A member of the RNA family "Small nucleolar RNA SNORA77" from Antrostomus carolinensis, 132 nucleotides long.
Rfam classes the family as an H/ACA-box small nucleolar RNA.
The match comes from Rfam's covariance-model search (58 bits).
On this family, see Schattner et al., RNA 2006: "A computational screen for mammalian pseudouridylation guide H/ACA RNAs".
Rfam describes the family as follows. ACA63 (SNORA77) is a member of the H/ACA class of snoRNAs that guide the sites of modification of uridines to pseudouridines. This snoRNA was identified by computational screening and its expression in mouse experimentally verified by Northern blot and primer extension analysis. ACA63 is proposed to guide the pseudouridylation of 18S rRNA U814.
The source organism's lineage runs through Eukaryota, Metazoa, Sarcopterygii, Aves and Antrostomus.
RNA sequence: GCAGACUCACUCUGUACUGAACUGCAUUCUUCAGUUCAGGUGCUUUUUCCGUCUGCGAGAGUAACAGCUCACAGGAGUGCCAGUCGCCUUCUUUCUGGUAGAAGGCUGUUAUAUUGCUGUUGGGACAUUGCU
Numbered sequence: 001g002c003a004g005a006c007u008c009a010c011u012c013u014g015u016a017c018u019g020a021a022c023u024g025c026a027u028u029c030u031u032c033a034g035u036u037c038a039g040g041u042g043c044u045u046u047u048u049c050c051g052u053c054u055g056c057g058a059g060a061g062u063a064a065c066a067g068c069u070c071a072c073a074g075g076a077g078u079g080c081c082a083g084u085c086g087c088c089u090u091c092u093u094u095c096u097g098g099u100a101g102a103a104g105g106c107u108g109u110u111a112u113a114u115u116g117c118u119g120u121u122g123g124g125a126c127a128u129u130g131c132u
Stems, first nucleotide, its partner, number of pairs: 001056006014043004018038003022034003068123002071120004076115004086106004